[Rfam]
This 109-nucleotide RNA from Caenorhabditis latens belongs to the Rfam family "SL2 RNA". The source organism's lineage runs through Eukaryota, Metazoa, Eumetazoa, Ecdysozoa and Caenorhabditis. The family is grouped with related families in Rfam's "SL clan". Rfam links the family to the GO term mRNA trans splicing, via spliceosome. Rfam describes the family as follows. This family represents SL2 RNA. SL2 RNA is involved in trans splicing in lower eukaryotes. Trans-splicing is a form of RNA processing. The acquisition of a spliced leader from a SL RNA is a intra-molecular reaction which precisely joins exons derived from separately transcribed RNAs. Approximately 25% of C. elegans genes are organised into polycistronic transcription units and the presence of SL2 on an mRNA is an indication the the gene is in an operon. By type it is a non-coding RNA gene.
RNA sequence: GGUUUUUACCCAGUUAACCAAGGUUAGCAUGGAUUCCAACCUUUCGAAAGAAUGCGUUGAAUAAAACAAUUUUUGGAACAGCUUCUUCGGGGUUUUCCGUUGAAGCGAA
Numbered sequence: 001g002g003u004u005u006u007u008a009c010c011c012a013g014u015u016a017a018c019c020a021a022g023g024u025u026a027g028c029a030u031g032g033a034u035u036c037c038a039a040c041c042u043u044u045c046g047a048a049a050g051a052a053u054g055c056g057u058u059g060a061a062u063a064a065a066a067c068a069a070u071u072u073u074u075g076g077a078a079c080a081g082c083u084u085c086u087u088c089g090g091g092g093u094u095u096u097c098c099g100u101u102g103a104a105g106c107g108a109a
Base pairs, nucleotide, nucleotide: 008034009032010031013028014027016025017024018023037059038058039057040056041054043052044051045050083107085105086104087103088102089101090100091098092097